[Rfam]
RNA sequence: CCUGGCACUUCCGUACCAGGCUGCGCUAUACCGUCCCGUCGGGACU
Numbered sequence: 001c002c003u004g005g006c007a008c009u010u011c012c013g014u015a016c017c018a019g020g021c022u023g024c025g026c027u028a029u030a031c032c033g034u035c036c037c038g039u040c041g042g043g044a045c046u
Base pairs, nucleotide, nucleotide: 001020002019003018004017005016007014008013033045034044035043036042037041
This 46-nucleotide sequence from Lentisphaera araneosa belongs to the Rfam family "Acido-Lenti-1 RNA".
Pairs were carried over by alignment from the consensus structure, which is taken from published work.
Taxonomically the source falls in Lentisphaera araneosa (Bacteria, Lentisphaerota, Lentisphaerales, Lentisphaeraceae).